[Rfam]
RNA sequence: UUUAAUUAGUGUCCAUGGGACGAAGUCCCAUAUUAGGAUGACGCUGACAAUCCGCCGCCGAGCGGAUGUGAGGGGCGAUACAUUAG
Numbered sequence: 001u002u003u004a005a006u007u008a009g010u011g012u013c014c015a016u017g018g019g020a021c022g023a024a025g026u027c028c029c030a031u032a033u034u035a036g037g038a039u040g041a042c043g044c045u046g047a048c049a050a051u052c053c054g055c056c057g058c059c060g061a062g063c064g065g066a067u068g069u070g071a072g073g074g075g076c077g078a079u080a081c082a083u084u085a086g
Base pairs, nucleotide, nucleotide: 008045009044010043011042012041013040015031016030017029018028019027020026054076055075056074058073059072062069063068
Shown here is an 86-nucleotide sequence, a member of the family "GA-cis RNA". Rfam classes the family as a small RNA. Pairs were carried over by alignment from the consensus structure, which is taken from published work. The sequence is in the family's curated seed alignment.